[Rfam]
A member of the RNA family "mir-15 microRNA precursor family" from Oreochromis niloticus, 90 nucleotides long. The organism belongs to Oreochromis, within Eukaryota. Pairs were carried over by alignment from the consensus structure, which was predicted with RNAalifold. On this family, see Calin et al., Proc Natl Acad Sci U S A 2002: "Frequent deletions and down-regulation of micro- RNA genes miR15 and miR16 at 13q14 in chronic lymphocytic leukemia".
RNA sequence: GGUCGCCUUACUGUAGCAGCACGUAAAUAUUGGAGUUAACACUCUAGCUGAAGUCUCCAGUAUUGAUCGUGCUGCUGAAGCAAAGCGGGC
Numbered sequence: 001g002g003u004c005g006c007c008u009u010a011c012u013g014u015a016g017c018a019g020c021a022c023g024u025a026a027a028u029a030u031u032g033g034a035g036u037u038a039a040c041a042c043u044c045u046a047g048c049u050g051a052a053g054u055c056u057c058c059a060g061u062a063u064u065g066a067u068c069g070u071g072c073u074g075c076u077g078a079a080g081c082a083a084a085g086c087g088g089g090c
Stems, first nucleotide, its partner, number of pairs: 001090001003088004014077010024066001026064010

Rfam describes the family as follows. This family represents the related mir-15a and mir-15b sequences.